RNA sequence: ACUUGUGAUGAAAUGAAUUAAAACGGAUUUAUGGGUCCUAUGACUUGCAUUUCCGAGAGCGCAAAUAUCAAGUGGAUUACUCCGUUGCCUUCCUUCUGAUAUUCUUU
Numbered sequence: 001a002c003u004u005g006u007g008a009u010g011a012a013a014u015g016a017a018u019u020a021a022a023a024c025g026g027a028u029u030u031a032u033g034g035g036u037c038c039u040a041u042g043a044c045u046u047g048c049a050u051u052u053c054c055g056a057g058a059g060c061g062c063a064a065a066u067a068u069c070a071a072g073u074g075g076a077u078u079a080c081u082c083c084g085u086u087g088c089c090u091u092c093c094u095u096c097u098g099a100u101a102u103u104c105u106u107u
Stems, first nucleotide, its partner, number of pairs: 005104001024084004